The record is a 134-nucleotide sequence from Bombilactobacillus mellis, which matches "FMN riboswitch aptamer (RFN element)" in Rfam.
A search with the family's covariance model found it, with a score of 119 bits.
The base pairs follow the family's consensus structure, which is taken from published work.
Taxonomically the source falls in Bombilactobacillus (Bacteria, Bacillati, Bacillota, Bacilli).
RNA sequence: UAGCUUCUUCGGGGUCGGGUGUAAUUCCCAAUCGGCGGUGACAAAGAUAAUUUGAAGUCCGCGACCUGCUAAUAGCAGUUGACCUGGUGCAAAUCCAGGACCGACAGUUAAAGUCUGGAUGGAAGAAGAAGUUU
Numbered sequence: 001u002a003g004c005u006u007c008u009u010c011g012g013g014g015u016c017g018g019g020u021g022u023a024a025u026u027c028c029c030a031a032u033c034g035g036c037g038g039u040g041a042c043a044a045a046g047a048u049a050a051u052u053u054g055a056a057g058u059c060c061g062c063g064a065c066c067u068g069c070u071a072a073u074a075g076c077a078g079u080u081g082a083c084c085u086g087g088u089g090c091a092a093a094u095c096c097a098g099g100a101c102c103g104a105c106a107g108u109u110a111a112a113g114u115c116u117g118g119a120u121g122g123a124a125g126a127a128g129a130a131g132u133u134u
Stems, first nucleotide, its partner, number of pairs: 003132008017029003031114002033103002035062004057101002066078002083099005105117003
Dot-bracket structure: ..((((((((......(((.......))).[[((((((..................[[))))...((.........))....(((((.......)))))]])).(((.....]]))).......))))))))..